[Rfam]
RNA sequence: GGUUUCUAUUGGUGCAAAUCCAAUCACUCCGUUCGAGAUGAUAAGCAAUUCUCCAUUGGUAGCAAAUAGUUAUCCAUUAAGCGGAGAAAAUAGUCU
Numbered sequence: 001g002g003u004u005u006c007u008a009u010u011g012g013u014g015c016a017a018a019u020c021c022a023a024u025c026a027c028u029c030c031g032u033u034c035g036a037g038a039u040g041a042u043a044a045g046c047a048a049u050u051c052u053c054c055a056u057u058g059g060u061a062g063c064a065a066a067u068a069g070u071u072a073u074c075c076a077u078u079a080a081g082c083g084g085a086g087a088a089a090a091u092a093g094u095c096u
Stems, first nucleotide, its partner, number of pairs: 009023004051086004055077002058074006
RNA: Plastid-rps12 3UTR RNA